The record is a 137-nucleotide RNA from Cuscuta europaea, which matches "Small nucleolar RNA U19" in Rfam. Rfam 15.1 lists 421 matches to the family in 201 species. The source organism's lineage runs through Eukaryota, Euphyllophyta, lamiids, Cuscuteae and Cuscuta subgen. Cuscuta.
RNA sequence: AUAUGGCUUAGUUAGGGGGCGUACAGUAAUUCUCUUGACCCGGAUUAAUAAUUCGGAUCAUGAAGAUCCAGGCAUUUUGAAUGGACUCUUGAUCUUUCUCAUAAAUCAACUGUGCCUUCAAACUGUUCUGGAUAUAC
Number, nucleotide and partner (000 for none) at each position: 001a000002u000003a000004u021005g020006g000007c018008u017009u016010a000011g000012u000013u000014a000015g000016g009017g008018g007019g000020c005021g004022u000023a000024c000025a000026g000027u000028a000029a000030u000031u000032c000033u000034c000035u000036u000037g059038a058039c000040c056041c055042g054043g053044a052045u000046u000047a000048a000049u000050a000051a000052u044053u043054c042055g041056g040057a000058u038059c037060a000061u000062g000063a000064a000065g000066a000067u000068c131069c130070a129071g128072g127073c000074a000075u000076u122077u121078u120079g119080a000081a118082u000083g116084g115085a113086c112087u000088c000089u109090u000091g000092a000093u000094c000095u000096u000097u000098c000099u000100c000101a000102u000103a000104a000105a000106u000107c000108a000109a089110c000111u000112g086113u085114g000115c084116c083117u000118u081119c079120a078121a077122a076123c000124u000125g000126u000127u072128c071129u070130g069131g068132a000133u000134a000135u000136a000137c000

The literature on the family includes a 2002 paper in Curr Biol by Marker et al., "Experimental RNomics: identification of 140 candidates for small non-messenger RNAs in the plant Arabidopsis thaliana". The base pairs follow the family's consensus structure, which was predicted with WAR. The family's RNA type in Rfam is H/ACA-box small nucleolar RNA.